The record is a 152-nucleotide RNA sequence from Peribacillus faecalis, which matches "Ribosomal protein L10 leader" in Rfam. Its family is annotated with regulation of gene expression in the Gene Ontology. The match comes from Rfam's covariance-model search (77 bits). Pairs were carried over by alignment from the consensus structure, which was predicted with CMfinder. Taxonomically the source falls in Peribacillus (Bacteria, Bacillota, Bacilli, Caryophanales). The family's RNA type in Rfam is cis-regulatory leader.
Nucleotides: 152
Stems, first nucleotide, its partner, number of pairs: 028057005034045003113137006120130003
Number, partner (000 for none) and nucleotide at each position: 001000a002000a003000a004000c005000g006000a007000a008000u009000a010000c011000c012000a013000u014000u015000u016000g017000u018000a019000c020000c021000g022000u023000a024000g025000a026000c027000a028057g029056u030055a031054g032053g033000u034045g035044c036043u037000c038000a039000a040000u041000a042000g043036a044035g045034c046000u047000u048000a049000a050000u051000u052000u053032c054031c055030u056029a057028c058000c059000g060000a061000g062000g063000u064000a065000a066000u067000u068000u069000c070000g071000a072000u073000u074000u075000a076000u077000u078000g079000a080000g081000u082000c083000c084000u085000a086000g087000u088000g089000a090000c091000u092000a093000u094000g095000a096000u097000g098000c099000u100000u101000u102000g103000a104000a105000a106000a107000u108000u109000a110000c111000u112000g113137c114136c115135c116134u117133c118132a119000c120130g121129u122128c123000u124000g125000c126000u127000u128122g129121a130120u131000c132118u133117g134116a135115g136114g137113g138000u139000u140000u141000u142000c143000u144000u145000u146000u147000u148000g149000a150000c151000c152000g